[Rfam]
RNA sequence: AUGCCCGGUGAUUAUAAAAAGACGCGUUAUUCUGAGGAAUAAAACCUGAUGCCAGUCCUCUUCUCCUCUUUCCCUCUUCUCCUACACCAUCUCCUCUUUCCCUCCUCUCCUACACCAUCUCCUCUCUUCCUCCUCUCGUACGCCAUGUCUCUAUCUUCGACUGGUAUCUGGUCCGUUGAAUGCGAUUAUGAGAUAUGAGGGCAU
Number, nucleotide and partner (000 for none) at each position: 001a204002u203003g202004c201005c200006c199007g000008g000009u000010g000011a000012u000013u000014a000015u000016a000017a000018a000019a000020a000021g000022a000023c000024g000025c000026g000027u000028u000029a000030u000031u000032c000033u000034g000035a111036g110037g109038a108039a000040u000041a000042a000043a000044a000045c000046c000047u000048g000049a000050u000051g000052c000053c000054a000055g000056u000057c000058c000059u000060c000061u000062u000063c000064u000065c000066c000067u000068c000069u000070u000071u000072c000073c000074c000075u000076c000077u000078u000079c000080u000081c000082c000083u000084a000085c000086a000087c000088c000089a000090u000091c000092u000093c000094c000095u000096c000097u000098u000099u000100c000101c000102c000103u000104c000105c000106u000107c000108u038109c037110c036111u035112a000113c000114a000115c000116c000117a000118u000119c000120u000121c000122c000123u000124c000125u000126c000127u000128u000129c000130c000131u000132c000133c000134u000135c000136u000137c000138g000139u000140a000141c000142g000143c000144c000145a000146u000147g000148u000149c000150u000151c000152u000153a000154u000155c000156u000157u000158c000159g000160a000161c000162u000163g000164g000165u000166a000167u000168c000169u000170g000171g000172u000173c000174c000175g000176u000177u000178g000179a000180a000181u000182g000183c000184g000185a000186u000187u000188a000189u000190g000191a000192g000193a000194u000195a000196u000197g000198a000199g006200g005201g004202c003203a002204u001